[Rfam]
RNA sequence: UGCGAAGGUACUUCAAUUAAGAACGCCACAUCCUGUGGCAACAUCGAAGUCAGCACAUCCUGUGCA
Numbered sequence: 001u002g003c004g005a006a007g008g009u010a011c012u013u014c015a016a017u018u019a020a021g022a023a024c025g026c027c028a029c030a031u032c033c034u035g036u037g038g039c040a041a042c043a044u045c046g047a048a049g050u051c052a053g054c055a056c057a058u059c060c061u062g063u064g065c066a
Stems, first nucleotide, its partner, number of pairs: 011049004016044002025039005053065004
RNA: Bacillaceae-1 RNA
Organism: Sporosarcina sp. P19